[Rfam]
RNA sequence: GUAACGGACACCGCAGGGUUUUGCUGGCAACAGCAAACACUCUUUCGCGAAACACUCCCGGCAAUUCCGGACUUGUAAACCCAGCCGGUAUGAAACCGGC
Numbered sequence: 001g002u003a004a005c006g007g008a009c010a011c012c013g014c015a016g017g018g019u020u021u022u023g024c025u026g027g028c029a030a031c032a033g034c035a036a037a038c039a040c041u042c043u044u045u046c047g048c049g050a051a052a053c054a055c056u057c058c059c060g061g062c063a064a065u066u067c068c069g070g071a072c073u074u075g076u077a078a079a080c081c082c083a084g085c086c087g088g089u090a091u092g093a094a095a096c097c098g099g100c
Stems, first nucleotide, its partner, number of pairs: 010019003020037006047055001049053001058070004084100006